[Rfam]
RNA sequence: AUACUCAGGUAAUCGCUGCAGUUGAUGCAGAGGAAAGUCCAUGCUCACACAAGCUGAGAUGUUUGUAGUGUUCGUGCUUGAUGAAUUCAUAAGUCAAGGUAACCAAUACGGUUAACGGCAGGAAAUAUUCCUAAGUCCAAUCGGAUAUGGAAUAUUAUACUUGAAAGUGCCACAGUGACGGAGCUGAAAUGGAAACAUUUCAGGUGGAACGAGGUAAACCCCACGAGUGAGCAACCCAAAUAAUGGUAGGGGCAUCCUUUAGUAGGGAAUUCAACCGAAAGAGGGACAAGGAACUCCUUGUAGAUAGAUGAUUACAACCUAAAGUACGAGGCUUGACCACCGUUAACAGUACGUAGGUACAGAACAUGGCUUAUCGAG
Numbered sequence: 001a002u003a004c005u006c007a008g009g010u011a012a013u014c015g016c017u018g019c020a021g022u023u024g025a026u027g028c029a030g031a032g033g034a035a036a037g038u039c040c041a042u043g044c045u046c047a048c049a050c051a052a053g054c055u056g057a058g059a060u061g062u063u064u065g066u067a068g069u070g071u072u073c074g075u076g077c078u079u080g081a082u083g084a085a086u087u088c089a090u091a092a093g094u095c096a097a098g099g100u101a102a103c104c105a106a107u108a109c110g111g112u113u114a115a116c117g118g119c120a121g122g123a124a125a126u127a128u129u130c131c132u133a134a135g136u137c138c139a140a141u142c143g144g145a146u147a148u149g150g151a152a153u154a155u156u157a158u159a160c161u162u163g164a165a166a167g168u169g170c171c172a173c174a175g176u177g178a179c180g181g182a183g184c185u186g187a188a189a190u191g192g193a194a195a196c197a198u199u200u201c202a203g204g205u206g207g208a209a210c211g212a213g214g215u216a217a218a219c220c221c222c223a224c225g226a227g228u229g230a231g232c233a234a235c236c237c238a239a240a241u242a243a244u245g246g247u248a249g250g251g252g253c254a255u256c257c258u259u260u261a262g263u264a265g266g267g268a269a270u271u272c273a274a275c276c277g278a279a280a281g282a283g284g285g286a287c288a289a290g291g292a293a294c295u296c297c298u299u300g301u302a303g304a305u306a307g308a309u310g311a312u313u314a315c316a317a318c319c320u321a322a323a324g325u326a327c328g329a330g331g332c333u334u335g336a337c338c339a340c341c342g343u344u345a346a347c348a349g350u351a352c353g354u355a356g357g358u359a360c361a362g363a364a365c366a367u368g369g370c371u372u373a374u375c376g377a378g
Base pairs, nucleotide, nucleotide: 004378005377006376007374009315010314011313012312013311014310016030017029018028019027020026035372036371037370039369040368041367042366043365044231045230046229047228048227049066050065051064052063053062054061072226073225074224075223076222077098078097079096080095081094082093099116100114101113102112103111104110117221118220120161121160123158128152129151130150131149135146136145137144167219168218169215170214171213184203185202186201187200188199189198190197191196235251236250237249255285256284257283258282259281260280286301287300288299289298290297291296318357319356320355322354324352325351326350327349
Bacterial RNase P class B: a 378-nucleotide RNA sequence from Oceanobacillus zhaokaii. Rfam classes the family as a ribozyme. On this family, see Frank and Pace, Annu Rev Biochem 1998: "Ribonuclease P: unity and diversity in a tRNA processing ribozyme". Lineage of the source: Bacteria > Bacillati > Bacilli > Bacillaceae > Oceanobacillus. Clan: RNaseP clan. The family's consensus secondary structure is taken from published work. Its family is annotated with ribonuclease P activity, dimeric ribonuclease P complex and tRNA processing in the Gene Ontology.